[Rfam]
RNA sequence: AUGCACAAACUCUCCCGGGCUUAUCUGAUGUUUAGAUUUGAAGAAAAAUGCCCCAUUGUUGGUGCUAAAACCAUGCCGUUUUACGUGUUGCGGAACAGCCUUUCUUUUCCAAUGGCUCUUCAGUGUCAAAUCGGCGGCUACAUCC
Numbered sequence: 001a002u003g004c005a006c007a008a009a010c011u012c013u014c015c016c017g018g019g020c021u022u023a024u025c026u027g028a029u030g031u032u033u034a035g036a037u038u039u040g041a042a043g044a045a046a047a048a049u050g051c052c053c054c055a056u057u058g059u060u061g062g063u064g065c066u067a068a069a070a071c072c073a074u075g076c077c078g079u080u081u082u083a084c085g086u087g088u089u090g091c092g093g094a095a096c097a098g099c100c101u102u103u104c105u106u107u108u109c110c111a112a113u114g115g116c117u118c119u120u121c122a123g124u125g126u127c128a129a130a131u132c133g134g135c136g137g138c139u140a141c142a143u144c145c
Base pairs, nucleotide, nucleotide: 003065004064005063006062008060009059010058017053018052019051020050022047024044025043026042075138076137077136078135079134080133086128087127089125090124091123093121094120098116099115100114
This 145-nucleotide RNA sequence from Gossypium lobatum belongs to the Rfam family "small nucleolar RNA snoR134". It is annotated as an H/ACA-box small nucleolar RNA. Lineage of the source: Eukaryota > Viridiplantae > Embryophyta > Gunneridae > Gossypium. It scores 82 bits against the family's covariance model. On this family, see Chen and Wu, Nucleic Acids Res 2009: "Mining small RNA sequencing data: a new approach to identify small nucleolar RNAs in Arabidopsis". The family's consensus secondary structure was predicted with RNAalifold. Its family is annotated with nucleolus and RNA processing in the Gene Ontology.